[Rfam]
Source information:
This 167-nucleotide RNA from Rhodoferax antarcticus belongs to the Rfam family "Group II catalytic intron D1-D4-3". A search with the family's covariance model found it, with a score of 120 bits.
RNA sequence: CAGCCCGCGAGGUCCUGUCUGGAGGAAGCCCGAGUGCAAAAGUGCGAGGCGACGAACAGAAACCGCAUAAAAGGCCAAGCCUGCGGGGCGAGUUGGCACAUGACGACAAAGCCCUUUGGUUCAGUGGGUAUGGUAAAUGCGGCGCUUGCGCAUGGAACGUUCGCGUC
Numbered sequence: 001c002a003g004c005c006c007g008c009g010a011g012g013u014c015c016u017g018u019c020u021g022g023a024g025g026a027a028g029c030c031c032g033a034g035u036g037c038a039a040a041a042g043u044g045c046g047a048g049g050c051g052a053c054g055a056a057c058a059g060a061a062a063c064c065g066c067a068u069a070a071a072a073g074g075c076c077a078a079g080c081c082u083g084c085g086g087g088g089c090g091a092g093u094u095g096g097c098a099c100a101u102g103a104c105g106a107c108a109a110a111g112c113c114c115u116u117u118g119g120u121u122c123a124g125u126g127g128g129u130a131u132g133g134u135a136a137a138u139g140c141g142g143c144g145c146u147u148g149c150g151c152a153u154g155g156a157a158c159g160u161u162c163g164c165g166u167c
Stems, first nucleotide, its partner, number of pairs: 003014001005012002028167001030165001036160002042153005047147005063142006074134003079129006086114004092107004
Taxonomically the source falls in Rhodoferax antarcticus (Bacteria, Pseudomonadati, Pseudomonadota, Burkholderiales).